[Rfam]
This 285-nucleotide sequence from Nonomuraea longispora belongs to the Rfam family "5' ureB small RNA". It scores 56 bits against the family's covariance model. Lineage of the source: Bacteria > Bacillati > Streptosporangiales > Streptosporangiaceae > Nonomuraea.
RNA sequence: UCGUCGAGCAGUUGCGGGCAGAUGAGGUGCACGUGGGAGUCGACGGCCCCGGCGGUGAGGAUCUUGCCGUUGCCCGCCAGCACCUCCGUGGACGGCCCGAUGACCAGGUCGACGCCGUCCAUCGUGUCGGGGUUGCCGGCCUUGCCGAUGGCGAGAACCCGGCCGUCGCGGACGCCGACGUCGGCCUUCACCACGCCCCAGUGGUCGAGGAUGAGCGCACCGGUGAUGACGAGGUCGGCCGCGCCCUCCGCACGCGUGGCCCGCGCCUGGCCCAUCGACUCGCGG
Numbered sequence: 001u002c003g004u005c006g007a008g009c010a011g012u013u014g015c016g017g018g019c020a021g022a023u024g025a026g027g028u029g030c031a032c033g034u035g036g037g038a039g040u041c042g043a044c045g046g047c048c049c050c051g052g053c054g055g056u057g058a059g060g061a062u063c064u065u066g067c068c069g070u071u072g073c074c075c076g077c078c079a080g081c082a083c084c085u086c087c088g089u090g091g092a093c094g095g096c097c098c099g100a101u102g103a104c105c106a107g108g109u110c111g112a113c114g115c116c117g118u119c120c121a122u123c124g125u126g127u128c129g130g131g132g133u134u135g136c137c138g139g140c141c142u143u144g145c146c147g148a149u150g151g152c153g154a155g156a157a158c159c160c161g162g163c164c165g166u167c168g169c170g171g172a173c174g175c176c177g178a179c180g181u182c183g184g185c186c187u188u189c190a191c192c193a194c195g196c197c198c199c200a201g202u203g204g205u206c207g208a209g210g211a212u213g214a215g216c217g218c219a220c221c222g223g224u225g226a227u228g229a230c231g232a233g234g235u236c237g238g239c240c241g242c243g244c245c246c247u248c249c250g251c252a253c254g255c256g257u258g259g260c261c262c263g264c265g266c267c268u269g270g271c272c273c274a275u276c277g278a279c280u281c282g283c284g285g
Base pairs, nucleotide, nucleotide: 001285002284003283005282006281007280008279012154013153014152015151016074017073020070028054029053030052032051033050035049036048037047055067056066057065076145079142080141083138088136089135090134091133093131095128097126102123103122107119108118109117111115162271163270164269165268168266169265170264174261175259176258184218185217187215188214189213198207221256222255223253228248229247233245234244